[Rfam]
RNA: SAM riboswitch aptamer (S box leader)
Organism: Lentibacillus salicampi
RNA sequence: UUCUUAUCCAGAGAGGUGGAGGGACUGGCCCAUUGAAACCUCAGCAACAGACACUAGUACUGUGCUAAUUCCAGAGGCUUAUGCUGAAGAUAAGAA
Numbered sequence: 001u002u003c004u005u006a007u008c009c010a011g012a013g014a015g016g017u018g019g020a021g022g023g024a025c026u027g028g029c030c031c032a033u034u035g036a037a038a039c040c041u042c043a044g045c046a047a048c049a050g051a052c053a054c055u056a057g058u059a060c061u062g063u064g065c066u067a068a069u070u071c072c073a074g075a076g077g078c079u080u081a082u083g084c085u086g087a088a089g090a091u092a093a094g095a096a
Stems, first nucleotide, its partner, number of pairs: 001096008013042005021031003025074004043066004048062002050058001052057001070088001075085002